[Rfam]
RNA sequence: UCUCAUAUCAAGCCGAAUUUCUUAAUGAAAACGGGGGAACCAUUCAAGUAGAAGCAGCUUUGCGGUGUCCGAGAAAACCGCAAGUUUUGCUCAUGGGGUGAAUUUCGCAGCACCGUUCCCAGCAGCGGCAAGCGAAUAGGGUGCCUUACAACCCGAAUCCGUCAGCUAACCUCGUAGGCUUCAGUUUGGAAACCA
Numbered sequence: 001u002c003u004c005a006u007a008u009c010a011a012g013c014c015g016a017a018u019u020u021c022u023u024a025a026u027g028a029a030a031a032c033g034g035g036g037g038a039a040c041c042a043u044u045c046a047a048g049u050a051g052a053a054g055c056a057g058c059u060u061u062g063c064g065g066u067g068u069c070c071g072a073g074a075a076a077a078c079c080g081c082a083a084g085u086u087u088u089g090c091u092c093a094u095g096g097g098g099u100g101a102a103u104u105u106c107g108c109a110g111c112a113c114c115g116u117u118c119c120c121a122g123c124a125g126c127g128g129c130a131a132g133c134g135a136a137u138a139g140g141g142u143g144c145c146u147u148a149c150a151a152c153c154c155g156a157a158u159c160c161g162u163c164a165g166c167u168a169a170c171c172u173c174g175u176a177g178g179c180u181u182c183a184g185u186u187u188g189g190a191a192a193c194c195a
Base pairs, nucleotide, nucleotide: 011180012179013178014177018030019029020028031175032174033173034172035171036170041095042094096160097159098158104136105135106134107133139154140153141152142151

The family of this 195-nucleotide RNA sequence from Paenibacillus oceani is "c-di-AMP riboswitch aptamer (ydaO/yuaA leader)".
From the family's description: This family represents a conserved RNA structure found upstream of the ydaO and yuaA genes in Bacillus subtilis and related genes in other bacteria. The ydaO/yuaA element is thought to act as a genetic 'off' switch for the ydaO and yuaA genes in its native state. It is believed that the element may be triggered during osmotic shock leading to activation of ydaO, a predicted amino acid transporter gene, and members of the yuaA-yubG operon which code for KtrA and KtrB K+ transporters.
It scores 88 bits against the family's covariance model.